[Rfam]
RNA: c-di-GMP-I riboswitch aptamer
Organism: Sulfurimonas gotlandica
RNA sequence: AUUGUAUUUAGCCAAACUUAUUGCGAAAUAAGGACGGAAAGCUGUGAGUCUUAAAUUUUGUGUAAAAUUGAAGAUUGUCUAGUUGCACUU
Numbered sequence: 001a002u003u004g005u006a007u008u009u010a011g012c013c014a015a016a017c018u019u020a021u022u023g024c025g026a027a028a029u030a031a032g033g034a035c036g037g038a039a040a041g042c043u044g045u046g047a048g049u050c051u052u053a054a055a056u057u058u059u060g061u062g063u064a065a066a067a068u069u070g071a072a073g074a075u076u077g078u079c080u081a082g083u084u085g086c087a088c089u090u
Stems, first nucleotide, its partner, number of pairs: 012037002017032006040084004046079002048075003055069001057067002